The record is a 52-nucleotide RNA from Sousa chinensis, which matches "mir-1302 microRNA precursor family" in Rfam. The literature on the family includes a 2008 paper in Genome Res by Morin et al., "Application of massively parallel sequencing to microRNA profiling and discovery in human embryonic stem cells". The source organism's lineage runs through Eukaryota, Vertebrata, Amniota, Theria and Sousa.

[Rfam]
RNA sequence: UUUAAAGUAUAAGUAUGUCCCGUGUAAUAUUUGAGACAUAUUUAUACUAAAA
Dot-bracket structure: .....(((((((.(((.((.((........).).)).))).)))))))....

Rfam links the family to the GO terms miRNA-mediated post-transcriptional gene silencing and RISC complex. It scores 69 bits against the family's covariance model.